[Rfam]
RNA sequence: GGCAGAUUCUUGAAUGGGAUCUCCAGCCGCCCAGUGCGUGCCACCUGGCUCACCUUCCCCGGAGCCAGGCGGAACGGGCCAGGCGCGGAUGGGGAUCCGGUCCAAGAAUCGUCGGGUU
Number, nucleotide and partner (000 for none) at each position: 001g000002g000003c000004a000005g000006a000007u000008u000009c000010u105011u104012g103013a000014a101015u100016g000017g000018g097019a096020u000021c094022u093023c092024c091025a090026g000027c088028c087029g086030c085031c083032c082033a000034g080035u000036g000037c000038g000039u074040g000041c072042c071043a000044c069045c068046u067047g066048g065049c064050u063051c062052a000053c000054c000055u000056u000057c000058c000059c000060c000061g000062g051063a050064g049065c048066c047067a046068g045069g044070c000071g042072g041073a000074a039075c000076g000077g000078g000079c000080c034081a000082g032083g031084c000085g030086c029087g028088g027089a000090u025091g024092g023093g022094g021095a000096u019097c018098c000099g000100g015101u014102c000103c012104a011105a010106g000107a000108a000109u000110c000111g000112u000113c000114g000115g000116g000117u000118u000
RNA: mraW RNA
Organism: Crystallibacter crystallopoietes